[Rfam]
Record summary: The record is a 135-nucleotide RNA sequence from Rhynochetos jubatus, which matches "Small nucleolar RNA SNORA1" in Rfam.
RNA sequence: CGCCUCGUUAUUCAUCGAUAGACACAACUCCCUGUGUCAGUGUCUGAACUGAAGAACGUGGCUAGAAGAGUAACAGGUUAUGCUUUCCUCACUGCAAAGCUAAUUGCAGUGGUGACAAUGAGGCCUGUAACAGGU
Numbered sequence: 001c002g003c004c005u006c007g008u009u010a011u012u013c014a015u016c017g018a019u020a021g022a023c024a025c026a027a028c029u030c031c032c033u034g035u036g037u038c039a040g041u042g043u044c045u046g047a048a049c050u051g052a053a054g055a056a057c058g059u060g061g062c063u064a065g066a067a068g069a070g071u072a073a074c075a076g077g078u079u080a081u082g083c084u085u086u087c088c089u090c091a092c093u094g095c096a097a098a099g100c101u102a103a104u105u106g107c108a109g110u111g112g113u114g115a116c117a118a119u120g121a122g123g124c125c126u127g128u129a130a131c132a133g134g135u
Stems, first nucleotide, its partner, number of pairs: 002062003006058003020045006073128005087114001089112004

Rfam classes the family as an H/ACA-box small nucleolar RNA. Its family is annotated with nucleolus and RNA processing in the Gene Ontology. The organism belongs to Rhynochetos, within Eukaryota. ACA1 is a member of the H/ACA class of snoRNA that guide the sites of modification of uridines to pseudouridines. The match comes from Rfam's covariance-model search (94 bits).